[Rfam]
RNA sequence: CCUGUGGAGUGUUAAGCAAACUGUAGUAGCAGGAUAGACGCGAGGCAGAACACGAUGAAGCAGGAA
Number, nucleotide and partner (000 for none) at each position: 001c064002c063003u062004g061005u060006g000007g000008a000009g053010u052011g051012u050013u049014a000015a000016g000017c000018a000019a000020a000021c048022u047023g046024u000025a000026g000027u000028a000029g041030c040031a000032g000033g000034a000035u000036a000037g000038a000039c000040g030041c029042g000043a000044g000045g000046c023047a022048g021049a013050a012051c011052a010053c009054g000055a000056u000057g000058a000059a000060g005061c004062a003063g002064g001065a000066a000
RNA: RAGATH-18 RNA